[Rfam]
RNA sequence: AGUUGAUUGUCCAAACGCAAUUCUUGUGAAAUGUCGAGCGAUCAGUCGAGAAUUGUGCCUGGACAUCUGU
Numbered sequence: 001a002g003u004u005g006a007u008u009g010u011c012c013a014a015a016c017g018c019a020a021u022u023c024u025u026g027u028g029a030a031a032u033g034u035c036g037a038g039c040g041a042u043c044a045g046u047c048g049a050g051a052a053u054u055g056u057g058c059c060u061g062g063a064c065a066u067c068u069g070u
Stems, first nucleotide, its partner, number of pairs: 002070001005067003009064005016057011
Dot-bracket structure: .(..(((.(((((..(((((((((((....................)))))))))))..))))))))..)